[Rfam]
RNA: int-alpA RNA
Organism: Thiothrix nivea
RNA sequence: CCGGCAUCUAGGGUAGGCCACCCGAAAAGCAGAAUCCUUUCACUGCCUGAUGCUGGUUCCUAUUUUGAAAGG
Numbered sequence: 001c002c003g004g005c006a007u008c009u010a011g012g013g014u015a016g017g018c019c020a021c022c023c024g025a026a027a028a029g030c031a032g033a034a035u036c037c038u039u040u041c042a043c044u045g046c047c048u049g050a051u052g053c054u055g056g057u058u059c060c061u062a063u064u065u066u067g068a069a070a071g072g
Base pairs, nucleotide, nucleotide: 001056002055003054004053005052006051007050008049011023012022013021014020029046030045031044032043036072037071038070039069040068041067